[Rfam]
The family of this 78-nucleotide sequence from Alligator mississippiensis is "Mammalian CPEB3 ribozyme". A search with the family's covariance model found it, with a score of 50 bits. Gene Ontology term of the family: RNA nuclease activity.

RNA sequence: AGAGGUUGCAAGUUUAAGGCCACAGCAGAAGUGCUCACGGCAUGGCCGAUCAGAUUCAAUGAAUCUGUGAAUUCUGCU
Numbered sequence: 001a002g003a004g005g006u007u008g009c010a011a012g013u014u015u016a017a018g019g020c021c022a023c024a025g026c027a028g029a030a031g032u033g034c035u036c037a038c039g040g041c042a043u044g045g046c047c048g049a050u051c052a053g054a055u056u057c058a059a060u061g062a063a064u065c066u067g068u069g070a071a072u073u074c075u076g077c078u
Stems, first nucleotide, its partner, number of pairs: 018047004024078007031043003051067007
Rfam 15.1 lists 5,706 matches to the family in 197 species. Lineage of the source: Eukaryota > Craniata > Tetrapoda > Alligatorinae > Alligator.